Rfam assigns this 387-nucleotide part of an RNA from Desulfolithobacter dissulfuricans to the family "Bacterial large subunit ribosomal RNA".
Gene Ontology terms of the family: ribosome and structural constituent of ribosome.
It scores 2988 bits against the family's covariance model.
Lineage of the source: Bacteria > Pseudomonadati > Thermodesulfobacteriota > Desulfobulbales > Desulfolithobacter.
The family's consensus secondary structure is taken from published work.
[Rfam]
RNA sequence: GAUAAAGCGGGUGAGAAACCCGCUCGCCGAAAGUCUAAGGUUUCCUGAGGUCAAGUUAAUCUUCCCAGGGUUAGUCGGCCCCUAAGGCGAGGCUGAAAAGCGUAGCUGAUGGGAAACAGGUUAAUAUUCCUGUACCACUGGUAUGGAGUUUGUGUAAGGGGGGACGGAGAAGGAUAGGCCAGCCGCGUGGUGGAAUACGUGGUUCAAGCGUGUAGGUGGAGGACUUAGGCAAAUCCGGGUCCUUGUUAACACUGAGGCGUGAUGACGAGUCCCUAUGGGACGCAAAGUGGUUGAUUCCAUGCUUCCAGGAAAAGCCUCGUACACAUUCAUACUGGUGACCGUACCGCAAACCGACACAGGUAGACAGGUAGAGUAUACUAAGGCGCU
Numbered sequence: 001g002a003u004a005a006a007g008c009g010g011g012u013g014a015g016a017a018a019c020c021c022g023c024u025c026g027c028c029g030a031a032a033g034u035c036u037a038a039g040g041u042u043u044c045c046u047g048a049g050g051u052c053a054a055g056u057u058a059a060u061c062u063u064c065c066c067a068g069g070g071u072u073a074g075u076c077g078g079c080c081c082c083u084a085a086g087g088c089g090a091g092g093c094u095g096a097a098a099a100g101c102g103u104a105g106c107u108g109a110u111g112g113g114a115a116a117c118a119g120g121u122u123a124a125u126a127u128u129c130c131u132g133u134a135c136c137a138c139u140g141g142u143a144u145g146g147a148g149u150u151u152g153u154g155u156a157a158g159g160g161g162g163g164a165c166g167g168a169g170a171a172g173g174a175u176a177g178g179c180c181a182g183c184c185g186c187g188u189g190g191u192g193g194a195a196u197a198c199g200u201g202g203u204u205c206a207a208g209c210g211u212g213u214a215g216g217u218g219g220a221g222g223a224c225u226u227a228g229g230c231a232a233a234u235c236c237g238g239g240u241c242c243u244u245g246u247u248a249a250c251a252c253u254g255a256g257g258c259g260u261g262a263u264g265a266c267g268a269g270u271c272c273c274u275a276u277g278g279g280a281c282g283c284a285a286a287g288u289g290g291u292u293g294a295u296u297c298c299a300u301g302c303u304u305c306c307a308g309g310a311a312a313a314g315c316c317u318c319g320u321a322c323a324c325a326u327u328c329a330u331a332c333u334g335g336u337g338a339c340c341g342u343a344c345c346g347c348a349a350a351c352c353g354a355c356a357c358a359g360g361u362a363g364a365c366a367g368g369u370a371g372a373g374u375a376u377a378c379u380a381a382g383g384c385g386c387u
Stems, first nucleotide, its partner, number of pairs: 006024006025385004033365004039345002044069004049065002054062002076341003081112002086107003090103001092101003116133005136337011153323002158318004166305004172298003177292005182203006204265002208260004215253003220243007228236002267283001269281005351360002367379004